[Rfam]
RNA sequence: CCUCGCAGCAAUGCUCUGGAAUCCUAUGUGAGGGAGAAACAUUCAGACCCUCGCAGCAGUGUUCUGGAGUUCUAUGUGAGGGA
Numbered sequence: 001c002c003u004c005g006c007a008g009c010a011a012u013g014c015u016c017u018g019g020a021a022u023c024c025u026a027u028g029u030g031a032g033g034g035a036g037a038a039a040c041a042u043u044c045a046g047a048c049c050c051u052c053g054c055a056g057c058a059g060u061g062u063u064c065u066g067g068a069g070u071u072c073u074a075u076g077u078g079a080g081g082g083a
Base pairs, nucleotide, nucleotide: 001081002080003079004078005077006076007075010073013070014069015068016067017066018065019064020063021062022061024059025058027056028054029053030052032050033049034048

The family of this 83-nucleotide RNA from Pan paniscus is "mir-1299 microRNA precursor family". Gene Ontology terms of the family: miRNA-mediated post-transcriptional gene silencing and RISC complex. Lineage of the source: Eukaryota > Deuterostomia > Theria > Euarchontoglires > Pan.